RNA: TPP riboswitch aptamer (THI element)
Organism: Mitsuokella jalaludinii
RNA sequence: AUUGCAUAACUGGGGAGCUUGUGGCAGAGUGCAGAGCAGGCUGAGAGGGGGCUGGUGGUCCCGACCCGUGAACCUGAUUUGGAUAAUGCCAACGUAGGGACAGCAGUGCUUCGCCGCAG
Numbered sequence: 001a002u003u004g005c006a007u008a009a010c011u012g013g014g015g016a017g018c019u020u021g022u023g024g025c026a027g028a029g030u031g032c033a034g035a036g037c038a039g040g041c042u043g044a045g046a047g048g049g050g051g052c053u054g055g056u057g058g059u060c061c062c063g064a065c066c067c068g069u070g071a072a073c074c075u076g077a078u079u080u081g082g083a084u085a086a087u088g089c090c091a092a093c094g095u096a097g098g099g100a101c102a103g104c105a106g107u108g109c110u111u112c113g114c115c116g117c118a119g
Stems, first nucleotide, its partner, number of pairs: 006107002010103001011068004017041005048062005073098004079092004